[Rfam]
RNA sequence: CCGGGUGAGGCCACGCGCCCCUGGAUCCGGGUGAGGCCACGCGCCCCCGGGUCUGGGUGAGGCCACGCACCCCU
Number, nucleotide and partner (000 for none) at each position: 001c000002c000003g072004g071005g070006u069007g068008a000009g064010g063011c062012c061013a000014c000015g000016c059017g058018c057019c056020c055021c000022u000023g054024g053025a052026u051027c050028c049029g048030g047031g046032u000033g045034a000035g000036g042037c041038c000039a000040c000041g037042c036043g000044c000045c033046c031047c030048c029049g028050g027051g026052u025053c024054u023055g020056g019057g018058u017059g016060a000061g012062g011063c010064c009065a000066c000067g000068c007069a006070c005071c004072c003073c000074u000